RNA: mir-9/mir-79 microRNA precursor family
RNA sequence: GGAUUUAUCUCUUUGGUUAUCUAGCUGUAUGAGUAGCUAAAGUAGUUAAUAGUUCAUAAAGCUAGGUUACCGAAGUUAUAAUCGC
Numbered sequence: 001g002g003a004u005u006u007a008u009c010u011c012u013u014u015g016g017u018u019a020u021c022u023a024g025c026u027g028u029a030u031g032a033g034u035a036g037c038u039a040a041a042g043u044a045g046u047u048a049a050u051a052g053u054u055c056a057u058a059a060a061g062c063u064a065g066g067u068u069a070c071c072g073a074a075g076u077u078a079u080a081a082u083c084g085c
Base pairs, nucleotide, nucleotide: 001085005081007079008078011075012074013073014072015071016070017069019067020066021065022064023063024062025061026060028058029057030056031055032054033053